[Rfam]
RNA sequence: GGAUCGUCACAACGGCUUCCUGGCGUGACGAUGACAUCGAACGGAGCA
Numbered sequence: 001g002g003a004u005c006g007u008c009a010c011a012a013c014g015g016c017u018u019c020c021u022g023g024c025g026u027g028a029c030g031a032u033g034a035c036a037u038c039g040a041a042c043g044g045a046g047c048a
Stems, first nucleotide, its partner, number of pairs: 004031007013022002015047003019044002
Shown here is a 48-nucleotide sequence from Paracoccus aminophilus, a member of the family "SAM/SAH riboswitch aptamer". The source organism's lineage runs through Bacteria, Pseudomonadati, Paracoccaceae, Paracoccus and Paracoccus aminophilus. The base pairs follow the family's consensus structure, which is taken from published work. Gene Ontology terms of the family: regulation of gene expression and S-adenosylmethionine metabolic process.